[Rfam]
RNA sequence: CGAAGGUGCAUUGUAGUCGCAUUGUCUGUAAGUUAUAAUAAAAAUUCAAACAAUACUUCUGCAAUGCAAACUUUG
Dot-bracket structure: ((((.(((((((((((..(.(((((.(....................).))))).)..))))))))))..)))))

This 75-nucleotide sequence from Lucilia cuprina belongs to the Rfam family "mir-33 microRNA precursor family".
It scores 59 bits against the family's covariance model.
Gene Ontology terms of the family: RISC complex and gene silencing by miRNA.
Pairs were carried over by alignment from the consensus structure, which was predicted with PFOLD.
The literature on the family includes a 2009 paper in BMC Genomics by Li et al., "Direct sequencing and expression analysis of a large number of miRNAs in Aedes aegypti and a multi-species survey of novel mosquito miRNAs".
Taxonomically the source falls in Lucilia (Eukaryota, Metazoa, Allotriocarida, Luciliinae).